The record is a 70-nucleotide RNA sequence from Camelus dromedarius, which matches "tRNA" in Rfam.
From the family's description: Transfer RNA (tRNA) molecules are approximately 80 nucleotides in length.
RNA sequence: GGAUGUAGCUCAGUGGUAGAGUGCGUGCCUGGCAUGCAUGAGGUCCUGGGUUCAAUCCCUAGCACUUCCA
Numbered sequence: 001g002g003a004u005g006u007a008g009c010u011c012a013g014u015g016g017u018a019g020a021g022u023g024c025g026u027g028c029c030u031g032g033c034a035u036g037c038a039u040g041a042g043g044u045c046c047u048g049g050g051u052u053c054a055a056u057c058c059c060u061a062g063c064a065c066u067u068c069c070a
Stems, first nucleotide, its partner, number of pairs: 001067002004064002008022004024040005046062005